[Rfam]
RNA sequence: UCCCAUAAGGGGGCAGUAUUACCCCUUAUGGGAAACUUGUAGCAUGUAGCA
Numbered sequence: 001u002c003c004c005a006u007a008a009g010g011g012g013g014c015a016g017u018a019u020u021a022c023c024c025c026u027u028a029u030g031g032g033a034a035a036c037u038u039g040u041a042g043c044a045u046g047u048a049g050c051a
Base pairs, nucleotide, nucleotide: 001033002032003031004030005029006028007027008026009025010024011023
RNA: ssNA-helicase RNA